[Rfam]
RNA sequence: GCUUGGUCCUCCCGCAACAAUAACUCGUGAACUCGGUCAGGUCCGGAAGGAAGCAGCCGCAGCGAGUGACUUGUGUGCCGGGAUGUGGCUGAGUCUC
Dot-bracket structure: ...(((((.((((((.((((..((((((.....((((....(((....)))....))))..))))))...)))))...)))))...)))))......

A member of the RNA family "Bacterial small signal recognition particle RNA" from Vibrio renipiscarius, 97 nucleotides long. Clan: SRP clan. The literature on the family includes a 2003 paper in Nucleic Acids Res by Rosenblad et al., "SRPDB: Signal Recognition Particle Database". Rfam links the family to the GO terms SRP-dependent cotranslational protein targeting to membrane, signal sequence recognition and signal recognition particle, plasma membrane targeting.